[Rfam]
RNA sequence: GUGUUCCUGAGAGUUCCCUUGACCACUUCAUGAGGGAUUACUUCGUUGUUUGAAGCCCUACUGAAGUGUUUGGGGGAACUCCUGGGUUCAC
Numbered sequence: 001g002u003g004u005u006c007c008u009g010a011g012a013g014u015u016c017c018c019u020u021g022a023c024c025a026c027u028u029c030a031u032g033a034g035g036g037a038u039u040a041c042u043u044c045g046u047u048g049u050u051u052g053a054a055g056c057c058c059u060a061c062u063g064a065a066g067u068g069u070u071u072g073g074g075g076g077a078a079c080u081c082c083u084g085g086g087u088u089c090a091c
Stems, first nucleotide, its partner, number of pairs: 006086004011081010022071001024068007033059003

Shown here is a 91-nucleotide RNA sequence from Capsicum annuum, a member of the family "mir-395 microRNA precursor family". Rfam links the family to the GO terms RISC complex and miRNA-mediated post-transcriptional gene silencing. mir-395 was identified in both Arabidopsis thaliana and Oryza sativa computationally and was later experimentally verified. mir-395 is thought to target mRNAs coding for ATP sulphurylases. The mature sequence is excised from the 3' arm of the hairpin. The organism belongs to Capsicum, within Eukaryota. The family's consensus secondary structure was predicted with PFOLD. The match comes from Rfam's covariance-model search (69 bits). A reference for the family is Jones-Rhoades and Bartel (2004), "Computational Identification of Plant MicroRNAs and Their Targets, Including a Stress-Induced miRNA", Mol Cell.